RNA sequence: UUUUACUUCGCUUUGGUUAUCUAGCUGUAUGAGUACGUUAUUAACUUCAUAAAGCUAGGUUACCAAAGCUGAGGACAA
Numbered sequence: 001u002u003u004u005a006c007u008u009c010g011c012u013u014u015g016g017u018u019a020u021c022u023a024g025c026u027g028u029a030u031g032a033g034u035a036c037g038u039u040a041u042u043a044a045c046u047u048c049a050u051a052a053a054g055c056u057a058g059g060u061u062a063c064c065a066a067a068g069c070u071g072a073g074g075a076c077a078a
Stems, first nucleotide, its partner, number of pairs: 001078002004075001007072002010069008019060008028051006
mir-9/mir-79 microRNA precursor family: a 78-nucleotide RNA sequence from Gongylonema pulchrum. Lineage of the source: Eukaryota > Opisthokonta > Protostomia > Rhabditida > Gongylonema. A search with the family's covariance model found it, with a score of 74 bits. Rfam links the family to the GO terms miRNA-mediated post-transcriptional gene silencing and RISC complex. The literature on the family includes a 2001 paper in Science by Lagos-Quintana et al., "Identification of novel genes coding for small expressed RNAs".